The record is a 75-nucleotide RNA from Streptomyces cyaneogriseus, which matches "ASpks TB sRNA" in Rfam.
For this family Rfam cites "Identification of small RNAs in Mycobacterium tuberculosis" (Arnvig and Young, Mol Microbiol, 2009).
RNA sequence: CUUCACCGAGCCCAGCCACAACGGCUGUUCCCCGGAACGCUCCUGGCCAUAUGUGUCGAGCAGGGCCUGGGCUUC
Numbered sequence: 001c002u003u004c005a006c007c008g009a010g011c012c013c014a015g016c017c018a019c020a021a022c023g024g025c026u027g028u029u030c031c032c033c034g035g036a037a038c039g040c041u042c043c044u045g046g047c048c049a050u051a052u053g054u055g056u057c058g059a060g061c062a063g064g065g066c067c068u069g070g071g072c073u074u075c
Base pairs, nucleotide, nucleotide: 014026015025016024017023031071032070033069038065043060044059048055049054